[Rfam]
Shown here is a 90-nucleotide RNA from Priestia koreensis, a member of the family "c-di-GMP-I riboswitch aptamer".
Taxonomically the source falls in Priestia (Bacteria, Bacillati, Bacillota, Caryophanales).
A search with the family's covariance model found it, with a score of 79 bits.
Gene Ontology term of the family: cyclic-di-GMP binding.

RNA sequence: AAAAGAAAAAGGCAAAGCUAAUGAAAGUUAGUGACGCAAAACUAUAGGGGCUAAAGUGUUCAGCAUACACGAAGCCAGCCAGUUACCGAA
Numbered sequence: 001a002a003a004a005g006a007a008a009a010a011g012g013c014a015a016a017g018c019u020a021a022u023g024a025a026a027g028u029u030a031g032u033g034a035c036g037c038a039a040a041a042c043u044a045u046a047g048g049g050g051c052u053a054a055a056g057u058g059u060u061c062a063g064c065a066u067a068c069a070c071g072a073a074g075c076c077a078g079c080c081a082g083u084u085a086c087c088g089a090a
Stems, first nucleotide, its partner, number of pairs: 012037002017032006040084004047080002049076003056070004